Background: This 144-nucleotide sequence from Falsochrobactrum ovis belongs to the Rfam family "Alphaproteobacterial sRNA ar7". A reference for the family is del Val et al. (2012), "A survey of sRNA families in alpha-proteobacteria", RNA Biol. The source organism's lineage runs through Bacteria, Pseudomonadati, Alphaproteobacteria, Brucellaceae and Falsochrobactrum. It is annotated as a small RNA. Pairs were carried over by alignment from the consensus structure.
RNA sequence: UAUCGACUGAGUAUGUCGACAAUCGAUUAUCAAUUUGUCCCCCAUUGAGAUCGGUUGUUGCAGCAGCCUCAUCCCCUCUCCGGGCUGCUGCUUGAGUAAGUGAUCUGGUCGUUGUGGUUCCCCUCACCACAGCGACCAAUCAUU
Numbered sequence: 001u002a003u004c005g006a007c008u009g010a011g012u013a014u015g016u017c018g019a020c021a022a023u024c025g026a027u028u029a030u031c032a033a034u035u036u037g038u039c040c041c042c043c044a045u046u047g048a049g050a051u052c053g054g055u056u057g058u059u060g061c062a063g064c065a066g067c068c069u070c071a072u073c074c075c076c077u078c079u080c081c082g083g084g085c086u087g088c089u090g091c092u093u094g095a096g097u098a099a100g101u102g103a104u105c106u107g108g109u110c111g112u113u114g115u116g117g118u119u120c121c122c123c124u125c126a127c128c129a130c131a132g133c134g135a136c137c138a139a140u141c142a143u144u
Stems, first nucleotide, its partner, number of pairs: 022055007032046003060091009103140001106138012